[Rfam]
RNA sequence: AUAACAACGAGGCCAAAGCUUCCAUAAAGCGCGGGGAAACCACCUAUUGGGGUGAAGCCGCAAUUUUGCGGCCGGGUGAUUGCUCUUUGACCCGAAUCCGUCAGCUAACUCCGCAGGCCAUCCAAAAGAGAGGAA
Numbered sequence: 001a002u003a004a005c006a007a008c009g010a011g012g013c014c015a016a017a018g019c020u021u022c023c024a025u026a027a028a029g030c031g032c033g034g035g036g037a038a039a040c041c042a043c044c045u046a047u048u049g050g051g052g053u054g055a056a057g058c059c060g061c062a063a064u065u066u067u068g069c070g071g072c073c074g075g076g077u078g079a080u081u082g083c084u085c086u087u088u089g090a091c092c093c094g095a096a097u098c099c100g101u102c103a104g105c106u107a108a109c110u111c112c113g114c115a116g117g118c119c120a121u122c123c124a125a126a127a128g129a130g131a132g133g134a135a
Stems, first nucleotide, its partner, number of pairs: 011119004018030003031114006041049002050099003058071004074093004